The record is a 31-nucleotide RNA from Glaucidium brasilianum, which matches "Iron response element II" in Rfam. Pairs were carried over by alignment from the consensus structure, which is taken from published work.

RNA sequence: GUGUUUUCUGUGUCAGUGUACUCAAAAAUAU
Numbered sequence: 001g002u003g004u005u006u007u008c009u010g011u012g013u014c015a016g017u018g019u020a021c022u023c024a025a026a027a028a029u030a031u
Base pairs, nucleotide, nucleotide: 001031002030003029004028005027006026007025009024010023012021013020014018

The source organism's lineage runs through Eukaryota, Euteleostomi, Dipnotetrapodomorpha, Sauropsida and Glaucidium. The family has 30 seed sequences and 5,197 matches in Rfam 15.1. IRE, TFRC, SLC40A1, SDHB, SLC11A2, CDC42BPA, ACO2, ALAS2_H.SAPIENS, CDC14A, EPAS1, ALAS2, qoxD, Hao1, NDUFS1, transferrin, Aconitate. For this family Rfam cites "Identification of a novel iron-responsive element in murine and human erythroid delta-aminolevulinic acid synthase mRNA" (Dandekar et al., EMBO J, 1991).